This 100-nucleotide RNA from Pseudoflavonifractor sp. An176 belongs to the Rfam family "Glycine riboswitch aptamer". Rfam links the family to the GO term glycine biosynthetic process.
RNA sequence: GGAUGUAACUCUGGAGAAGCUCAGCAAUGAGUGCCGAAGGUGCAACGUGGGGACCGCUGGUUCCCGCCAAUCUCUCAGGCAAAAGGACAGAGGAAAUCAU
Number, nucleotide and partner (000 for none) at each position: 001g000002g000003a000004u000005g000006u095007a000008a000009c092010u091011c090012u089013g088014g000015a000016g000017a000018a000019g000020c031021u030022c029023a028024g000025c000026a000027a000028u023029g022030a021031g020032u000033g080034c079035c078036g076037a075038a000039g000040g074041u000042g072043c000044a000045a000046c000047g067048u066049g065050g064051g063052g062053a061054c060055c059056g000057c000058u000059g055060g054061u053062u052063c051064c050065c049066g048067c047068c000069a000070a000071u000072c042073u000074c040075u037076c036077a000078g035079g034080c033081a000082a000083a000084a000085g000086g000087a000088c013089a012090g011091a010092g009093g000094a000095a006096a000097u000098c000099a000100u000
A search with the family's covariance model found it, with a score of 56 bits.